[Rfam]
Shown here is a 137-nucleotide RNA sequence from Hymenochirus boettgeri, a member of the family "Small Cajal body specific RNA 11".
The source organism's lineage runs through Eukaryota, Sarcopterygii, Tetrapoda, Batrachia and Hymenochirus.
The family's consensus secondary structure was predicted with RNAalifold.
A search with the family's covariance model found it, with a score of 51 bits.

RNA sequence: UUGUCCACUCCGCUUGGCUCUGCCUACCCUCUGUUCUAGAAUUACAGUUGGUCUGUGGAUGGAGCACAGUGAUUCUGCCUGUUUAGGAGGGCCGCACACAGACUGGGUGCAUUCCCUUAAAGGCAUGGCAGGACAUU
Numbered sequence: 001u002u003g004u005c006c007a008c009u010c011c012g013c014u015u016g017g018c019u020c021u022g023c024c025u026a027c028c029c030u031c032u033g034u035u036c037u038a039g040a041a042u043u044a045c046a047g048u049u050g051g052u053c054u055g056u057g058g059a060u061g062g063a064g065c066a067c068a069g070u071g072a073u074u075c076u077g078c079c080u081g082u083u084u085a086g087g088a089g090g091g092c093c094g095c096a097c098a099c100a101g102a103c104u105g106g107g108u109g110c111a112u113u114c115c116c117u118u119a120a121a122g123g124c125a126u127g128g129c130a131g132g133a134c135a136u137u
Stems, first nucleotide, its partner, number of pairs: 004063004010058002026052003031047004074132006081124004087118005094110004099105001

Annotation
For this family Rfam cites "Cajal body-specific small nuclear RNAs: a novel class of 2'-O-methylation and pseudouridylation guide RNAs" (Darzacq et al., EMBO J, 2002).